[Rfam]
RNA sequence: CUUUUUAUGCCGAGUUUGCCUUUCGGCAAACAUCGUUUUAUUUACUGCGCUUUCUCAACUGACGUUUGCGAAAGCGCGGCUAAAAACUUUUUCGGGAAUUGACAUUCCCUGCAAAAGUUUUUAUAGGA
Numbered sequence: 001c002u003u004u005u006u007a008u009g010c011c012g013a014g015u016u017u018g019c020c021u022u023u024c025g026g027c028a029a030a031c032a033u034c035g036u037u038u039u040a041u042u043u044a045c046u047g048c049g050c051u052u053u054c055u056c057a058a059c060u061g062a063c064g065u066u067u068g069c070g071a072a073a074g075c076g077c078g079g080c081u082a083a084a085a086a087c088u089u090u091u092u093c094g095g096g097a098a099u100u101g102a103c104a105u106u107c108c109c110u111g112c113a114a115a116a117g118u119u120u121u122u123a124u125a126g127g128a
Stems, first nucleotide, its partner, number of pairs: 012034002014031007047077008082122010094109006
RNA: TD-1 RNA
Organism: Treponema maltophilum